The record is a 130-nucleotide RNA, which matches "lysM-TM7 RNA" in Rfam. It is one of the family's seed sequences.

[Rfam]
RNA sequence: UUCCUCGCUUUUGAAACUUAGAACUUUAUAACUAAUAUUUAAUACAAUUAAAAUUUUUGGUCGAAGAUGUUCGUUCCUUUUAAGGAGUUUUAGAUGCGAUGUUUUUCUUGCAGUAAUGCAAGAAGAGGAG
Numbered sequence: 001u002u003c004c005u006c007g008c009u010u011u012u013g014a015a016a017c018u019u020a021g022a023a024c025u026u027u028a029u030a031a032c033u034a035a036u037a038u039u040u041a042a043u044a045c046a047a048u049u050a051a052a053a054u055u056u057u058u059g060g061u062c063g064a065a066g067a068u069g070u071u072c073g074u075u076c077c078u079u080u081u082a083a084g085g086a087g088u089u090u091u092a093g094a095u096g097c098g099a100u101g102u103u104u105u106u107c108u109u110g111c112a113g114u115a116a117u118g119c120a121a122g123a124a125g126a127g128g129a130g
Stems, first nucleotide, its partner, number of pairs: 004101001005099004014090004021072004075086004105124002108121005
By type it is a cis-regulatory element.